The record is a 207-nucleotide RNA sequence from Atlantibacter hermannii, which matches "FMN riboswitch aptamer (RFN element)" in Rfam. Gene Ontology term of the family: FMN binding. The match comes from Rfam's covariance-model search (106 bits). The RFN element is a highly conserved domain that is found frequently in the 5'-untranslated regions of prokaryotic mRNAs that encode for flavin mononucleotide (FMN) biosynthesis and transport proteins. Lineage of the source: Bacteria > Pseudomonadota > Gammaproteobacteria > Atlantibacter > Atlantibacter hermannii. The base pairs follow the family's consensus structure, which is taken from published work.
[Rfam]
RNA sequence: GCUUAUUCUCAGGGCGGGGCGAAAUUCCCCACCGGCGGUAAAUCAGCGAAACUGUCCACCGUAUUUCACGUUGCUGCAAAGCGGCGAGAAACACGCAAGACGCGCUGAAAGCCCGCGAGCGCUUCAGAGGUUUAACGACGCUGAAGGUCAGCAGAUCCGGUGUAAUUCCGGGGCCGACGGUUAAAGUCCGGAUGGGAGAGAGUAACG
Numbered sequence: 001g002c003u004u005a006u007u008c009u010c011a012g013g014g015c016g017g018g019g020c021g022a023a024a025u026u027c028c029c030c031a032c033c034g035g036c037g038g039u040a041a042a043u044c045a046g047c048g049a050a051a052c053u054g055u056c057c058a059c060c061g062u063a064u065u066u067c068a069c070g071u072u073g074c075u076g077c078a079a080a081g082c083g084g085c086g087a088g089a090a091a092c093a094c095g096c097a098a099g100a101c102g103c104g105c106u107g108a109a110a111g112c113c114c115g116c117g118a119g120c121g122c123u124u125c126a127g128a129g130g131u132u133u134a135a136c137g138a139c140g141c142u143g144a145a146g147g148u149c150a151g152c153a154g155a156u157c158c159g160g161u162g163u164a165a166u167u168c169c170g171g172g173g174c175c176g177a178c179g180g181u182u183a184a185a186g187u188c189c190g191g192a193u194g195g196g197a198g199a200g201a202g203u204a205a206c207g
Stems, first nucleotide, its partner, number of pairs: 003205008017029003031187002033176002035116004119152002156172005178190003